[Rfam]
RNA sequence: UAGAACAAUGUAGAUAAGGGAAGUCGGCAAAAUAGAUCCGUAACUUCGGGAUAAGGAUUGGCUCUAAGGGUUGGGAGUGUAAGGGCGGGGGUGACGUGGAUGAGUGUAGUGUGGACGGUGCUGGCCUUUCGGUCGGUGCUGUCUGCGCCGUGCUUGCUUGCCAACCCCCCGUUCCCCGCUUCAAUAACAACCAACUUAGAACUGGUACGGACAAGGGGAAUCUGACUGUCUAAUUAAAACAUAGCAUUGCGAUGGUCAGAAAGUGAUGUUGACGCAAUGUGAUUUCUGCCCAGUGCUCUGAAUGUCAAAGUGAAGAAAUUCAACCAAGCGCGGGUAAACGGCGGGAGUAACUAUGACUCUCUUAAGGUAGCCAAAUGCCUCGUCAUCUAAUUAGUGACGCGCAUGAAUGGAUUAACGAGAUUCCCACUGUCCCUAUCUACUAUCUAGCGAAACCACAGCCCAAGGGAACGGGCUUGGCAGA
Numbered sequence: 001u002a003g004a005a006c007a008a009u010g011u012a013g014a015u016a017a018g019g020g021a022a023g024u025c026g027g028c029a030a031a032a033u034a035g036a037u038c039c040g041u042a043a044c045u046u047c048g049g050g051a052u053a054a055g056g057a058u059u060g061g062c063u064c065u066a067a068g069g070g071u072u073g074g075g076a077g078u079g080u081a082a083g084g085g086c087g088g089g090g091g092u093g094a095c096g097u098g099g100a101u102g103a104g105u106g107u108a109g110u111g112u113g114g115a116c117g118g119u120g121c122u123g124g125c126c127u128u129u130c131g132g133u134c135g136g137u138g139c140u141g142u143c144u145g146c147g148c149c150g151u152g153c154u155u156g157c158u159u160g161c162c163a164a165c166c167c168c169c170c171g172u173u174c175c176c177c178g179c180u181u182c183a184a185u186a187a188c189a190a191c192c193a194a195c196u197u198a199g200a201a202c203u204g205g206u207a208c209g210g211a212c213a214a215g216g217g218g219a220a221u222c223u224g225a226c227u228g229u230c231u232a233a234u235u236a237a238a239a240c241a242u243a244g245c246a247u248u249g250c251g252a253u254g255g256u257c258a259g260a261a262a263g264u265g266a267u268g269u270u271g272a273c274g275c276a277a278u279g280u281g282a283u284u285u286c287u288g289c290c291c292a293g294u295g296c297u298c299u300g301a302a303u304g305u306c307a308a309a310g311u312g313a314a315g316a317a318a319u320u321c322a323a324c325c326a327a328g329c330g331c332g333g334g335u336a337a338a339c340g341g342c343g344g345g346a347g348u349a350a351c352u353a354u355g356a357c358u359c360u361c362u363u364a365a366g367g368u369a370g371c372c373a374a375a376u377g378c379c380u381c382g383u384c385a386u387c388u389a390a391u392u393a394g395u396g397a398c399g400c401g402c403a404u405g406a407a408u409g410g411a412u413u414a415a416c417g418a419g420a421u422u423c424c425c426a427c428u429g430u431c432c433c434u435a436u437c438u439a440c441u442a443u444c445u446a447g448c449g450a451a452a453c454c455a456c457a458g459c460c461c462a463a464g465g466g467a468a469c470g471g472g473c474u475u476g477g478c479a480g481a
Base pairs, nucleotide, nucleotide: 001446002445003444004443010440011439012438013437014436015435016434018432019431020430035059036058037057038056039055044049060203061202063200064199065198066197067196068195069192070191071190072189073188075181076180077179078178079177083173085170087168088167089166090165096159098157101156102155103154104153105152106151107150109148110147111146112145113144114143115142116141117140118139119138120137121136122135123134124133125132126131204208216425217424218423219422220421221420222419223417224416227241228240229239244280245279246278247277248276249275250274251273255267256266257265258264284411285410286409288342289341290340293339294338295335296334297333298332300331303330304329305328311322312321313320314319343361344360345359346358347357348356362366382398383397384396385395386394460477461476462475463474464473
RNA: Eukaryotic large subunit ribosomal RNA, nucleotides 1814 to 2294